[Rfam]
RNA sequence: ACUACUGCAAAAAGGAGAGUAGUGGAGAGAGAAAAAAGAGCAGUGGGAAUAGGAGCUGUGUUCCUUGGGUUCUUGGGUGCAGCCGGAAGCACUAUGGGCGCGGCGUCAAUAACGCUGACGGUACAGGCCAGACAAUUGUUGUCUGGGAUAGUGCAACAGCAAAGCAAUUUGCUGAAGGCUAUAGAGGCGCAACAGCAUCUGUUGCAACUCACGGUCUGGGGCAUUAAGCAGCUCCAGACAAGAGUCCUGGCUAUAGAAAGAUACCUAAAGGAUCAACAGCUCCUAGGGAUUUGGGGCUGCUCUGGAAGACUCAUCUGCACUACUGCUGUACCUUGGA
Numbered sequence: 001a002c003u004a005c006u007g008c009a010a011a012a013a014g015g016a017g018a019g020u021a022g023u024g025g026a027g028a029g030a031g032a033a034a035a036a037a038g039a040g041c042a043g044u045g046g047g048a049a050u051a052g053g054a055g056c057u058g059u060g061u062u063c064c065u066u067g068g069g070u071u072c073u074u075g076g077g078u079g080c081a082g083c084c085g086g087a088a089g090c091a092c093u094a095u096g097g098g099c100g101c102g103g104c105g106u107c108a109a110u111a112a113c114g115c116u117g118a119c120g121g122u123a124c125a126g127g128c129c130a131g132a133c134a135a136u137u138g139u140u141g142u143c144u145g146g147g148a149u150a151g152u153g154c155a156a157c158a159g160c161a162a163a164g165c166a167a168u169u170u171g172c173u174g175a176a177g178g179c180u181a182u183a184g185a186g187g188c189g190c191a192a193c194a195g196c197a198u199c200u201g202u203u204g205c206a207a208c209u210c211a212c213g214g215u216c217u218g219g220g221g222c223a224u225u226a227a228g229c230a231g232c233u234c235c236a237g238a239c240a241a242g243a244g245u246c247c248u249g250g251c252u253a254u255a256g257a258a259a260g261a262u263a264c265c266u267a268a269a270g271g272a273u274c275a276a277c278a279g280c281u282c283c284u285a286g287g288g289a290u291u292u293g294g295g296g297c298u299g300c301u302c303u304g305g306a307a308g309a310c311u312c313a314u315c316u317g318c319a320c321u322a323c324u325g326c327u328g329u330a331c332c333u334u335g336g337a
Base pairs, nucleotide, nucleotide: 002336003335004334007331009329018324019323020322021321022320023319024318026316027315028314029312030311031310037303038302039301040300041299042298043297044296050285051284052283053282054281055280056279057278062272063271064270065269066267067266068265069264070263071261072260073259074258079254081252082251083250084249089154090153091152092151093150094149095125096124099120100119101117102116103115104114105113106112128146129145130144131143132142133141134140135139157174158173159172160171161170162169163168175248177246178245179244180243184210185209186208189205190204191203192202193201194200195199214239215238216237217236218235219234220233221232222231
This 337-nucleotide sequence from Human immunodeficiency virus belongs to the Rfam family "HIV Rev response element". By type it is a cis-regulatory element. The Rev response element (RRE) is encoded within the HIV-env gene. Rev is an essential regulatory protein of HIV that binds an internal loop of the RRE leading, encouraging further Rev-RRE binding.